[Rfam]
RNA sequence: CUGUACUAGAUGGGGAGGUAGCGGCACCCUGUAACCUGCAAUCCGCUAUAGCAGGGUUGAACUCCAUCUGGAGGAUUUGUAAUUGAAGUGCAGUCUUUAUUUACUUGGUGUUGACGCUCAGGUCCUGAGCAAUGGAAGCUUGUGAAUCCCGUCAGAUCUGGAAGGAAGCAGCGGUAAGCAAUCCCUUCUGUGUGACUCAGGGAUGCCUUGGCUGAGCUGAGUAAUAGGGCAACGGCUUUGAGGAAAAGACGAUAGAUGGUGUACAG
Numbered sequence: 001c002u003g004u005a006c007u008a009g010a011u012g013g014g015g016a017g018g019u020a021g022c023g024g025c026a027c028c029c030u031g032u033a034a035c036c037u038g039c040a041a042u043c044c045g046c047u048a049u050a051g052c053a054g055g056g057u058u059g060a061a062c063u064c065c066a067u068c069u070g071g072a073g074g075a076u077u078u079g080u081a082a083u084u085g086a087a088g089u090g091c092a093g094u095c096u097u098u099a100u101u102u103a104c105u106u107g108g109u110g111u112u113g114a115c116g117c118u119c120a121g122g123u124c125c126u127g128a129g130c131a132a133u134g135g136a137a138g139c140u141u142g143u144g145a146a147u148c149c150c151g152u153c154a155g156a157u158c159u160g161g162a163a164g165g166a167a168g169c170a171g172c173g174g175u176a177a178g179c180a181a182u183c184c185c186u187u188c189u190g191u192g193u194g195a196c197u198c199a200g201g202g203a204u205g206c207c208u209u210g211g212c213u214g215a216g217c218u219g220a221g222u223a224a225u226a227g228g229g230c231a232a233c234g235g236c237u238u239u240g241a242g243g244a245a246a247a248g249a250c251g252a253u254a255g256a257u258g259g260u261g262u263a264c265a266g
Stems, first nucleotide, its partner, number of pairs: 001266006009058003012030004017025001019023001035055005064259007073250001076247002080244001083241007096228006104221002107218003116212003120208004124201006130192002133190005138183001140181004149174004157166003
The family of this 266-nucleotide RNA sequence from Peptacetobacter hiranonis is "Bacterial large signal recognition particle RNA".
Pairs were carried over by alignment from the consensus structure, which is taken from published work.
The signal recognition particle (SRP) is a universally conserved ribonucleoprotein involved in the co-translational targeting of proteins to membranes.
Rfam links the family to the GO terms signal recognition particle, plasma membrane targeting and SRP-dependent cotranslational protein targeting to membrane, signal sequence recognition.
It is annotated as a non-coding RNA gene.
NCBI's taxonomy places the organism under Bacteria, Bacillota, Clostridia, Peptostreptococcales, Peptacetobacter hiranonis.